A member of the RNA family "Small Cajal body specific RNA 15" from Alligator mississippiensis, 129 nucleotides long. By type it is a small Cajal body RNA. Rfam links the family to the GO terms RNA processing, Cajal body and nucleolus. Rfam describes the family as follows. scaRNAs are a specific class of small nuclear RNAs which localise to the Cajal bodies and guide the modification of RNA polymerase II transcribed spliceosomal RNAs U1, U2, U4, U5 and U12. ACA45 belongs to the H/ACA box class of guide RNAs as it has the predicted hairpin-hinge-hairpin-tail structure, the conserved H/ACA-box motifs and is found associated with GAR1. ACA45 is predicted to guide the pseudouridylation of residue U37 of the U2 spliceosomal snRNA. Its Rfam clan is "SCARNA4 clan". The organism belongs to Alligator, within Eukaryota. The base pairs follow the family's consensus structure, which was predicted with RNAfold.
RNA sequence: CUGGAGGGAUAAGAAAGUGGAGCUUGUAAAGUCAAAUAGCUCUACUGAUACUAUCCUCCUAGAUUAAUUUGGUAGAAAAACAGGACCUGGCUAUGUAAUGGAGUCAGGGCUACUUAUCUACCAACAAUC
Numbered sequence: 001c002u003g004g005a006g007g008g009a010u011a012a013g014a015a016a017g018u019g020g021a022g023c024u025u026g027u028a029a030a031g032u033c034a035a036a037u038a039g040c041u042c043u044a045c046u047g048a049u050a051c052u053a054u055c056c057u058c059c060u061a062g063a064u065u066a067a068u069u070u071g072g073u074a075g076a077a078a079a080a081c082a083g084g085a086c087c088u089g090g091c092u093a094u095g096u097a098a099u100g101g102a103g104u105c106a107g108g109g110c111u112a113c114u115u116a117u118c119u120a121c122c123a124a125c126a127a128u129c
Stems, first nucleotide, its partner, number of pairs: 003059006010050002018044007025036001027034001071122006078115001082111001084110001086108004